[Rfam]
RNA sequence: CCUGGGAGGGGCUGACUUGGCCGGUGUGGUACAGAGAAGCCGGCUUGUUUACUUACCCGUCCCACG
Numbered sequence: 001c002c003u004g005g006g007a008g009g010g011g012c013u014g015a016c017u018u019g020g021c022c023g024g025u026g027u028g029g030u031a032c033a034g035a036g037a038a039g040c041c042g043g044c045u046u047g048u049u050u051a052c053u054u055a056c057c058c059g060u061c062c063c064a065c066g
Stems, first nucleotide, its partner, number of pairs: 001066001003064005009058003014049003019045007026032002
Dot-bracket structure: (.(((((.(((..(((..(((((((((...))......))))))).)))......))).))))).)